The record is a 399-nucleotide RNA from Cryobacterium tepidiphilum, which matches "Bacterial RNase P class A" in Rfam.
RNA sequence: UGGGUCGGCAAGGCGGUCGCGUCAUCCGUUGUUCGCGAGAACAGCGGAUGCCGAGGAACGUCCGGGCUCCAUAGAGCAGGACGGUGGGUAACACCCACCCGGGGCAACCCGCGAGACAGUGCCACAGAAAGUAGACCGCCGCCUGCCGGCCUUCGGGCCAGGCAGGGGGUAAGGGUGAAACGGUGGUGUAAGAGACCACCAGAGGCCAGGGUGACCUGGUCGGCUCGGUAAACCUCGUCCGGAGCAAGGUCAGACAGGGAACGACAAGGCUGCUCGCCCAGUUCCCGGGUAGACCGCUGGAGGGCUGCGGCAACGUAGUCCCGAGAUAGAUGGCCGCCCACGGUGUCCGUGCCUCGCACGGCACCCGGACAGAACCCGGCGUACCAGCCGGCCCAUUCC
Numbered sequence: 001u002g003g004g005u006c007g008g009c010a011a012g013g014c015g016g017u018c019g020c021g022u023c024a025u026c027c028g029u030u031g032u033u034c035g036c037g038a039g040a041a042c043a044g045c046g047g048a049u050g051c052c053g054a055g056g057a058a059c060g061u062c063c064g065g066g067c068u069c070c071a072u073a074g075a076g077c078a079g080g081a082c083g084g085u086g087g088g089u090a091a092c093a094c095c096c097a098c099c100c101g102g103g104g105c106a107a108c109c110c111g112c113g114a115g116a117c118a119g120u121g122c123c124a125c126a127g128a129a130a131g132u133a134g135a136c137c138g139c140c141g142c143c144u145g146c147c148g149g150c151c152u153u154c155g156g157g158c159c160a161g162g163c164a165g166g167g168g169g170u171a172a173g174g175g176u177g178a179a180a181c182g183g184u185g186g187u188g189u190a191a192g193a194g195a196c197c198a199c200c201a202g203a204g205g206c207c208a209g210g211g212u213g214a215c216c217u218g219g220u221c222g223g224c225u226c227g228g229u230a231a232a233c234c235u236c237g238u239c240c241g242g243a244g245c246a247a248g249g250u251c252a253g254a255c256a257g258g259g260a261a262c263g264a265c266a267a268g269g270c271u272g273c274u275c276g277c278c279c280a281g282u283u284c285c286c287g288g289g290u291a292g293a294c295c296g297c298u299g300g301a302g303g304g305c306u307g308c309g310g311c312a313a314c315g316u317a318g319u320c321c322c323g324a325g326a327u328a329g330a331u332g333g334c335c336g337c338c339c340a341c342g343g344u345g346u347c348c349g350u351g352c353c354u355c356g357c358a359c360g361g362c363a364c365c366c367g368g369a370c371a372g373a374a375c376c377c378g379g380c381g382u383a384c385c386a387g388c389c390g391g392c393c394c395a396u397u398c399c
Stems, first nucleotide, its partner, number of pairs: 001395009012338007020053002023050011058382003062379005067244004074275004079240005084098005099113001100111004114235002119233002121229003136174002138170003142166005182200006202224001204221007248295004257286006268278003302321008
By type it is a ribozyme.